[Rfam]
RNA sequence: UGCUGUCGAUGACAGCCACCAAUGUUUCCAGUAUCGGGAUGAUACGAGUGACCUGUGAGAAACGCCUUCGGGUGGUCACACUGUCAAAGUCAUAGGAAUGGAGCGUGGUCUGAGACUGACGCCUUCGGGCGACCACAAACACUUCCGUAGCCUGCAAGGAAGAACGCGCACAGUUGCGUGUGGUAAAUCU
Numbered sequence: 001u002g003c004u005g006u007c008g009a010u011g012a013c014a015g016c017c018a019c020c021a022a023u024g025u026u027u028c029c030a031g032u033a034u035c036g037g038g039a040u041g042a043u044a045c046g047a048g049u050g051a052c053c054u055g056u057g058a059g060a061a062a063c064g065c066c067u068u069c070g071g072g073u074g075g076u077c078a079c080a081c082u083g084u085c086a087a088a089g090u091c092a093u094a095g096g097a098a099u100g101g102a103g104c105g106u107g108g109u110c111u112g113a114g115a116c117u118g119a120c121g122c123c124u125u126c127g128g129g130c131g132a133c134c135a136c137a138a139a140c141a142c143u144u145c146c147g148u149a150g151c152c153u154g155c156a157a158g159g160a161a162g163a164a165c166g167c168g169c170a171c172a173g174u175u176g177c178g179u180g181u182g183g184u185a186a187a188u189c190u
Base pairs, nucleotide, nucleotide: 002016003015004014005013006012007011024063025062026061027060028059048079049078050077051076052075053074064073065072066071102117103116105136106135107134108133109132110131121130122129123128142162143161144160145159148186150184151183152182166179167178168177169176170175

The record is a 190-nucleotide RNA from Lonsdalea quercina, which matches "STAXI RNA" in Rfam.
Rfam 15.1 lists 130 matches to the family in 68 species.
Lineage of the source: Bacteria > Pseudomonadati > Gammaproteobacteria > Enterobacterales > Lonsdalea.
It is annotated as a small RNA.